[Rfam]
RNA sequence: ACCCUCCGGUUCCCUUUCCCAUCGGAUCUGAACACCGGUCUUGGUGGUCGUAAAAGGAGGAAAAGUAAUAAUUGAAGCUGGCCUCACAGUGCUUGUGGUCUGCUCUAUGGCAUGGGGGCUAGUUUCAGACAGGG
Numbered sequence: 001a002c003c004c005u006c007c008g009g010u011u012c013c014c015u016u017u018c019c020c021a022u023c024g025g026a027u028c029u030g031a032a033c034a035c036c037g038g039u040c041u042u043g044g045u046g047g048u049c050g051u052a053a054a055a056g057g058a059g060g061a062a063a064a065g066u067a068a069u070a071a072u073u074g075a076a077g078c079u080g081g082c083c084u085c086a087c088a089g090u091g092c093u094u095g096u097g098g099u100c101u102g103c104u105c106u107a108u109g110g111c112a113u114g115g116g117g118g119c120u121a122g123u124u125u126c127a128g129a130c131a132g133g134g
Stems, first nucleotide, its partner, number of pairs: 003060005019047005025040004078122007094112003

The family of this 134-nucleotide RNA from Hipposideros armiger is "Small nucleolar RNA SNORA61". Its family is annotated with RNA processing and nucleolus in the Gene Ontology. Rfam 15.1 lists 881 matches to the family in 421 species. ACA61 is a member of the H/ACA class of snoRNA that guide the sites of modification of uridines to pseudouridines. It is annotated as an H/ACA-box small nucleolar RNA.